[Rfam]
RNA sequence: GAGACAUCCGAGCCGAAGCCCGACAGGGCGCGGGGGAACCAAGUAUACGGGGUGAAGCCGCAGCCGCGGCAGGGCGUACUCCGACCUAACCCGUCAGCUAACCUCGCAGGCUUACAUUCCAAGGAGGA
Numbered sequence: 001g002a003g004a005c006a007u008c009c010g011a012g013c014c015g016a017a018g019c020c021c022g023a024c025a026g027g028g029c030g031c032g033g034g035g036g037a038a039c040c041a042a043g044u045a046u047a048c049g050g051g052g053u054g055a056a057g058c059c060g061c062a063g064c065c066g067c068g069g070c071a072g073g074g075c076g077u078a079c080u081c082c083g084a085c086c087u088a089a090c091c092c093g094u095c096a097g098c099u100a101a102c103c104u105c106g107c108a109g110g111c112u113u114a115c116a117u118u119c120c121a122a123g124g125a126g127g128a
Stems, first nucleotide, its partner, number of pairs: 011112004018029003030107006040049001050092003058069004072086002075083001
RNA: c-di-AMP riboswitch aptamer (ydaO/yuaA leader)